[Rfam]
This 81-nucleotide RNA from Pipistrellus kuhlii belongs to the Rfam family "mir-574 microRNA precursor family". Gene Ontology terms of the family: RISC complex and miRNA-mediated post-transcriptional gene silencing. For this family Rfam cites "Patterns of known and novel small RNAs in human cervical cancer" (Lui et al., Cancer Res, 2007).
Nucleotides: 081
Base pairs, nucleotide, nucleotide: 008073010071011070012069013068014067015066017064018063019062020061022059024057025056026055027054028053029052032049034047035046
Number, partner (000 for none) and nucleotide at each position: 001000a002000g003000a004000c005000c006000u007000g008073g009000a010071g011070a012069g013068a014067g015066a016000a017064g018063c019062a020061g021000g022059g023000u024057c025056u026055g027054a028053u029052c030000c031000g032049u033000a034047g035046c036000c037000u038000c039000c040000a041000u042000g043000g044000c045000a046035g047034u048000g049032g050000u051000u052029g053028a054027u055026u056025a057024g058000c059022c060000c061020u062019u063018g064017c065000c066015u067014c068013u069012c070011u071010c072000c073008u074000u075000c076000u077000c078000u079000c080000u081000a
Record summary:
The organism belongs to Pipistrellus, within Eukaryota. It scores 80 bits against the family's covariance model.